A member of the RNA family "Actinobacteria sRNA Ms_IGR-5" from Streptomyces jumonjinensis, 203 nucleotides long.
It is annotated as a small RNA.
RNA sequence: ACACGACGAAAGGAGGUGAUCCGGAAGUGGUUUCUUCUCGGAUGCGUGAGGUGACUGCGGGCUAGAGCCUGCUGUCGCACGCUGUGCCGUCGGCAGGCCUCCUGCCGCAAUCCCAAGCAGUCACCCGACCCGUGGGCCGCCGGUGUCCGACCGGUUCUCCUCUCCGUCCGGACGGAAGGAGAAAGGCCCACGGGUCGUCCGCG
Number, nucleotide and partner (000 for none) at each position: 001a000002c000003a000004c000005g000006a000007c000008g000009a000010a000011a000012g000013g000014a000015g000016g058017u057018g056019a000020u054021c000022c000023g000024g000025a000026a000027g000028u000029g000030g000031u000032u000033u000034c000035u000036u000037c000038u000039c000040g000041g000042a000043u000044g000045c000046g000047u000048g000049a000050g000051g000052u000053g000054a020055c000056u018057g017058c016059g000060g106061g105062c104063u000064a000065g101066a100067g098068c097069c096070u095071g000072c093073u092074g091075u000076c000077g000078c000079a000080c000081g000082c000083u000084g000085u000086g000087c000088c000089g000090u000091c074092g073093g072094c000095a070096g069097g068098c067099c000100u066101c065102c000103u000104g062105c061106c060107g000108c000109a000110a000111u000112c000113c000114c000115a000116a000117g000118c000119a000120g000121u000122c000123a000124c000125c000126c197127g196128a195129c194130c193131c192132g191133u190134g189135g188136g187137c186138c185139g155140c154141c153142g152143g151144u150145g000146u000147c000148c000149g000150a144151c143152c142153g141154g140155u139156u000157c000158u000159c000160c000161u000162c000163u000164c000165c000166g000167u000168c000169c000170g000171g000172a000173c000174g000175g000176a000177a000178g000179g000180a000181g000182a000183a000184a000185g138186g137187c136188c135189c134190a133191c132192g131193g130194g129195u128196c127197g126198u000199c000200c000201g000202c000203g000

The source organism's lineage runs through Bacteria, Actinomycetota, Actinomycetes, Kitasatosporales and Streptomyces.